[Rfam]
RNA: Small nucleolar RNA snR191
RNA sequence: GUCCCAUCGUUCAAGUCAAGGCAUCAUCGUGAGAGUGAGAGAUUUCCUUUUGGUUAUCGAUCAUUUCCUUCAGUCGAAGAUGUCUGUUACAACAUUGGGAGAUCAAAGCCCAAUCCCUACUCGUCAUCCUUAUCAUGUUUUAUGACUAGGAUUGAUAUCGAUUUACCCGUUUUGGGUCAAAUCACCAGGGAUUGGGAUAUGUUUCGUUUGAGUUGAGCUCCUACAUUUUUCUUCACUGAAAAACCUUGUGUUGGUUCUCUUAGUUAUGAUUCACACAUUC
Numbered sequence: 001g002u003c004c005c006a007u008c009g010u011u012c013a014a015g016u017c018a019a020g021g022c023a024u025c026a027u028c029g030u031g032a033g034a035g036u037g038a039g040a041g042a043u044u045u046c047c048u049u050u051u052g053g054u055u056a057u058c059g060a061u062c063a064u065u066u067c068c069u070u071c072a073g074u075c076g077a078a079g080a081u082g083u084c085u086g087u088u089a090c091a092a093c094a095u096u097g098g099g100a101g102a103u104c105a106a107a108g109c110c111c112a113a114u115c116c117c118u119a120c121u122c123g124u125c126a127u128c129c130u131u132a133u134c135a136u137g138u139u140u141u142a143u144g145a146c147u148a149g150g151a152u153u154g155a156u157a158u159c160g161a162u163u164u165a166c167c168c169g170u171u172u173u174g175g176g177u178c179a180a181a182u183c184a185c186c187a188g189g190g191a192u193u194g195g196g197a198u199a200u201g202u203u204u205c206g207u208u209u210g211a212g213u214u215g216a217g218c219u220c221c222u223a224c225a226u227u228u229u230u231c232u233u234c235a236c237u238g239a240a241a242a243a244c245c246u247u248g249u250g251u252u253g254g255u256u257c258u259c260u261u262a263g264u265u266a267u268g269a270u271u272c273a274c275a276c277a278u279u280c
Base pairs, nucleotide, nucleotide: 003098004097006095007094019085020084021083022082023081024080025079027077028076113192114191115190116189117188118187121161122160123159126156127155128154130149131148132147133145134144135143136142165177166176167175168174169173194274196272197271204269205268206267207266215259216258217257221253223251224250227243228242229241230239231238